Rfam assigns this 37-nucleotide sequence to the family "DUF805b RNA".
Pairs were carried over by alignment from the consensus structure, which is taken from published work.
It is one of the family's seed sequences.
Rfam classes the family as a cis-regulatory element.
RNA sequence: AAGGGGGAAGCUGAAAACCCUGACAAUCGAGUAGGCA
Numbered sequence: 001a002a003g004g005g006g007g008a009a010g011c012u013g014a015a016a017a018c019c020c021u022g023a024c025a026a027u028c029g030a031g032u033a034g035g036c037a
Stems, first nucleotide, its partner, number of pairs: 002021004010036003